About this RNA:
Bacterial RNase P class A: a 384-nucleotide sequence from Tersicoccus phoenicis. The source organism's lineage runs through Bacteria, Actinomycetota, Micrococcales, Micrococcaceae and Tersicoccus. Ribonuclease P (RNase P) is a ubiquitous endoribonuclease, found in archaea, bacteria and eukarya as well as chloroplasts and mitochondria.
RNA sequence: UGGGACGGCCGGGCGGCCGCGUCCGGCGCGUGCGCGUCGGCCGAGGAACGUCCGGGCUCCGCAGGGCACGGUGGUGGGUAACGCCCACUCGGGGAGACCCGCAGGACAGUGCCACAGAGAACAGACCGCCCGCCGUCGUUCGUCGGCGCGCGGGUAAGGGUGAAACGGCGGUGUAAGAGACCACCGCACCCCGGGUGACCGGGGUGGCAAGGUAAACCCCACCGGGAGCAAGGCCAGACAGGACGCGAUCGAGGGCUGCCCGCCCGAGCGUCCGGGUAGGCCGCUCGAGGGUGCCGGCAACGGUACUCCUAGAUGGAUGGUCGCCACCUGCAGUCCGGGUAACCGGCGCAGGCACAGAACCCGGCGUACAGGCCGUCCCGUCCA
Numbered sequence: 001u002g003g004g005a006c007g008g009c010c011g012g013g014c015g016g017c018c019g020c021g022u023c024c025g026g027c028g029c030g031u032g033c034g035c036g037u038c039g040g041c042c043g044a045g046g047a048a049c050g051u052c053c054g055g056g057c058u059c060c061g062c063a064g065g066g067c068a069c070g071g072u073g074g075u076g077g078g079u080a081a082c083g084c085c086c087a088c089u090c091g092g093g094g095a096g097a098c099c100c101g102c103a104g105g106a107c108a109g110u111g112c113c114a115c116a117g118a119g120a121a122c123a124g125a126c127c128g129c130c131c132g133c134c135g136u137c138g139u140u141c142g143u144c145g146g147c148g149c150g151c152g153g154g155u156a157a158g159g160g161u162g163a164a165a166c167g168g169c170g171g172u173g174u175a176a177g178a179g180a181c182c183a184c185c186g187c188a189c190c191c192c193g194g195g196u197g198a199c200c201g202g203g204g205u206g207g208c209a210a211g212g213u214a215a216a217c218c219c220c221a222c223c224g225g226g227a228g229c230a231a232g233g234c235c236a237g238a239c240a241g242g243a244c245g246c247g248a249u250c251g252a253g254g255g256c257u258g259c260c261c262g263c264c265c266g267a268g269c270g271u272c273c274g275g276g277u278a279g280g281c282c283g284c285u286c287g288a289g290g291g292u293g294c295c296g297g298c299a300a301c302g303g304u305a306c307u308c309c310u311a312g313a314u315g316g317a318u319g320g321u322c323g324c325c326a327c328c329u330g331c332a333g334u335c336c337g338g339g340u341a342a343c344c345g346g347c348g349c350a351g352g353c354a355c356a357g358a359a360c361c362c363g364g365c366g367u368a369c370a371g372g373c374c375g376u377c378c379c380g381u382c383c384a
Base pairs, nucleotide, nucleotide: 001380002379003378004377005376006375007374008373009372010371011369012325013324014323015322016321017320018319020043021042023040024039025038026037027036028035048367049366050365052364053363054362055361056360057228058227059226060225064261065260066259067258069224070223071222072221073220074088075087076086077085078084089103090101091100092099093098104219105218109217110216111213112212113211126159127158128155129154130153131152132151133150134148135147136146137145138144167185168184170182171181172180186208187206188205189204190203191202192201193200194199232282233281234280235279241273242272243271244270245269246268253265254264255263256262289308290307291306292305293304294303295302296301
Dot-bracket structure: ((((((((((((((((((.((.((((((......)))))).))....[[[.[[[[[((((...[[[[.((((((((((.....)))))(((((....)))).)((...(((((............(((((((((((((.....))))).))))))..)).......((.(((.......))).))(((((((((....)))))))).)..)))..)))))))))))))...((((.....((((((......((((.]]]]))))..)))))).....))))......((((((((....))))))))..........)))))))..................................]]]]]]]].).))))))))))....